[Rfam]
This 164-nucleotide RNA sequence from Phenylobacterium soli belongs to the Rfam family "Manganese Mn2+ riboswitch aptamer (yybP-ykoY)". It scores 51 bits against the family's covariance model.

RNA sequence: CUCCUUUGGGGAGUAGCCGACCGCGCGUUCAGCGGGGCUCACGUCAACAGACUUGUCGGGCGACCGGCAUGGCGUGAGCGGCCGAGAGGCACGGCGAGACCGAAGGCCAGCUUCCGCUCGUGGGUCGGGCGGGGAAGCCUGGCCUUUGGUGCGCGCCGCCUGAC
Numbered sequence: 001c002u003c004c005u006u007u008g009g010g011g012a013g014u015a016g017c018c019g020a021c022c023g024c025g026c027g028u029u030c031a032g033c034g035g036g037g038c039u040c041a042c043g044u045c046a047a048c049a050g051a052c053u054u055g056u057c058g059g060g061c062g063a064c065c066g067g068c069a070u071g072g073c074g075u076g077a078g079c080g081g082c083c084g085a086g087a088g089g090c091a092c093g094g095c096g097a098g099a100c101c102g103a104a105g106g107c108c109a110g111c112u113u114c115c116g117c118u119c120g121u122g123g124g125u126c127g128g129g130c131g132g133g134g135a136a137g138c139c140u141g142g143c144c145u146u147u148g149g150u151g152c153g154c155g156c157c158g159c160c161u162g163a164c
Stems, first nucleotide, its partner, number of pairs: 021035003037079010054069005084164001